[Rfam]
This 55-nucleotide RNA belongs to the Rfam family "L31-Actinobacteria ribosomal protein leader".
RNA sequence: GCGGUACCGGUUCACGUCUGCCCCGCCAGGCACGGAGCAAGGCGACCCGGCGACC
Numbered sequence: 001g002c003g004g005u006a007c008c009g010g011u012u013c014a015c016g017u018c019u020g021c022c023c024c025g026c027c028a029g030g031c032a033c034g035g036a037g038c039a040a041g042g043c044g045a046c047c048c049g050g051c052g053a054c055c
Base pairs, nucleotide, nucleotide: 003055004054005053007050008049009048010047015044016043017042018041019040020038021037
Rfam classes the family as a cis-regulatory leader.